[Rfam]
RNA sequence: UGCCAGUCAGGCUCCUGGCAGGAGUCCUGCUCUCAGCUGGUUCCAGGCUCUAGCCAGGGGCUUGACUGCAA
Numbered sequence: 001u002g003c004c005a006g007u008c009a010g011g012c013u014c015c016u017g018g019c020a021g022g023a024g025u026c027c028u029g030c031u032c033u034c035a036g037c038u039g040g041u042u043c044c045a046g047g048c049u050c051u052a053g054c055c056a057g058g059g060g061c062u063u064g065a066c067u068g069c070a071a
Base pairs, nucleotide, nucleotide: 006066007065008064010062011061012059013058016056017055018054019053021051022050023049026040027039029037030036

Rfam assigns this 71-nucleotide sequence from Mus musculus to the family "mir-344 microRNA precursor family". For this family Rfam cites "Mammalian microRNAs: experimental evaluation of novel and previously annotated genes" (Chiang et al., Genes Dev, 2010). The base pairs follow the family's consensus structure, which was predicted with RNAalifold. Taxonomically the source falls in Mus (Eukaryota, Gnathostomata, Dipnotetrapodomorpha, Muridae).